[Rfam]
Shown here is an 86-nucleotide RNA sequence from Nothobranchius furzeri, a member of the family "mir-135 microRNA precursor family". On this family, see Lagos-Quintana et al., Curr Biol 2002: "Identification of tissue-specific microRNAs from mouse". The match comes from Rfam's covariance-model search (71 bits). The family's consensus secondary structure was predicted with PFOLD.
RNA sequence: UUCCCAGUUCGCUGUAUGGCUUUUUAUUCCUAUCUGACUGUGCUAAUGGUUCAUAUAGGGAUGGAAGCCAUGCACUGCGCUGGGGG
Numbered sequence: 001u002u003c004c005c006a007g008u009u010c011g012c013u014g015u016a017u018g019g020c021u022u023u024u025u026a027u028u029c030c031u032a033u034c035u036g037a038c039u040g041u042g043c044u045a046a047u048g049g050u051u052c053a054u055a056u057a058g059g060g061a062u063g064g065a066a067g068c069c070a071u072g073c074a075c076u077g078c079g080c081u082g083g084g085g086g
Stems, first nucleotide, its partner, number of pairs: 002085007010077002013074011026062008035053003
Dot-bracket structure: .(((((((.((.(((((((((((..((((((((.(((.............))).)))))))).))))))))))).)).))))))).